Rfam assigns this 140-nucleotide RNA from Triticum urartu to the family "mir-172 microRNA precursor family".
Its family is annotated with RISC complex and miRNA-mediated post-transcriptional gene silencing in the Gene Ontology.
The base pairs follow the family's consensus structure, which was predicted with PFOLD.
The literature on the family includes a 2004 paper in Mol Cell by Jones-Rhoades and Bartel, "Computational Identification of Plant MicroRNAs and Their Targets, Including a Stress-Induced miRNA".
Rfam's curators write: mir-172 has been experimentally verified in Arabidopsis thaliana. This family is thought to target mRNAs coding for APETALA2-like transcription factors.
The source organism's lineage runs through Eukaryota, Streptophyta, Petrosaviidae, Poales and Triticum.
[Rfam]
RNA sequence: GUGUGUGCGGGCGUGGCAUCAUCAAGAUUCACAUCCAUCCCAUCCAGGCAUGAAUCGCUCUGUUUGUUUCCAAAAUGAUGAAACAGCAAUCAGCAUGUAGAUGUGCAUGAGAAUCUUGAUGAUGCUGCAUCCGCACACAA
Numbered sequence: 001g002u003g004u005g006u007g008c009g010g011g012c013g014u015g016g017c018a019u020c021a022u023c024a025a026g027a028u029u030c031a032c033a034u035c036c037a038u039c040c041c042a043u044c045c046a047g048g049c050a051u052g053a054a055u056c057g058c059u060c061u062g063u064u065u066g067u068u069u070c071c072a073a074a075a076u077g078a079u080g081a082a083a084c085a086g087c088a089a090u091c092a093g094c095a096u097g098u099a100g101a102u103g104u105g106c107a108u109g110a111g112a113a114u115c116u117u118g119a120u121g122a123u124g125c126u127g128c129a130u131c132c133g134c135a136c137a138c139a140a
Stems, first nucleotide, its partner, number of pairs: 010131002013128018032109002